[Rfam]
RNA sequence: GAGCCAGCCAAAUAAUCUGCUUAUCAGAAUGUGUUUCUGCAGAAAUUUAGAAAUAGCUAGCAAUAGUGAUGCCAUUUUAUGAGCUUUAAGGACAACUGAAUUAUUAUCGUCCCUCAAAAUGGCUACAAUA
Numbered sequence: 001g002a003g004c005c006a007g008c009c010a011a012a013u014a015a016u017c018u019g020c021u022u023a024u025c026a027g028a029a030u031g032u033g034u035u036u037c038u039g040c041a042g043a044a045a046u047u048u049a050g051a052a053a054u055a056g057c058u059a060g061c062a063a064u065a066g067u068g069a070u071g072c073c074a075u076u077u078u079a080u081g082a083g084c085u086u087u088a089a090g091g092a093c094a095a096c097u098g099a100a101u102u103a104u105u106a107u108c109g110u111c112c113c114u115c116a117a118a119a120u121g122g123c124u125a126c127a128a129u130a
Stems, first nucleotide, its partner, number of pairs: 003061002006058002016043005071123004083110002087106003091102002
Dot-bracket structure: ..((.((........(((((..................))))).............)).)).........((((........((..(((.((........)).)))..)).........)))).......

This 130-nucleotide RNA from Jaculus jaculus belongs to the Rfam family "Small nucleolar RNA SNORA33". The match comes from Rfam's covariance-model search (109 bits). Rfam describes the family as follows. ACA33 is a member of the H/ACA class of snoRNA that guide the sites of modification of uridines to pseudouridines. Rfam classes the family as an H/ACA-box small nucleolar RNA. Rfam links the family to the GO terms nucleolus and RNA processing. NCBI's taxonomy places the organism under Eukaryota, Deuterostomia, Amniota, Mammalia, Jaculus.